Rfam assigns this 127-nucleotide RNA sequence to the family "Actinobacteria sRNA Ms_IGR-7". The family has 14 seed sequences and 463 matches in Rfam 15.1. The match comes from Rfam's covariance-model search (47 bits). By type it is a small RNA.
Nucleotides: 127
Base pairs, nucleotide, nucleotide: 002077003076004075005074006073007072008071009070010069011068012067013066014065015064016063018061019060020059021058022057024055025054026053027052029050031048032047033046034045035044036043108125109124111122112121113120114119
Number, partner (000 for none) and nucleotide at each position: 001000a002077a003076u004075a005074a006073g007072u008071u009070c010069u011068u012067u013066u014065g015064a016063a017000g018061c019060u020059g021058a022057a023000a024055a025054g026053a027052u028000a029050g030000g031048g032047c033046u034045g035044u036043a037000c038000a039000g040000a041000g042000a043036u044035a045034u046033a047032g048031c049000c050029c051000u052027a053026u054025c055024u056000u057022u058021u059020c060019a061018g062000c063016u064015u065014c066013a067012a068011a069010a070009g071008a072007a073006c074005u075004u076003a077002u078000c079000u080000a081000a082000g083000c084000u085000g086000u087000u088000g089000u090000a091000u092000a093000a094000c095000c096000c097000u098000g099000u100000u101000u102000u103000u104000c105000a106000g107000c108125u109124g110000a111122u112121a113120u114119g115000a116000a117000u118000g119114c120113a121112u122111a123000a124109u125108a126000a127000g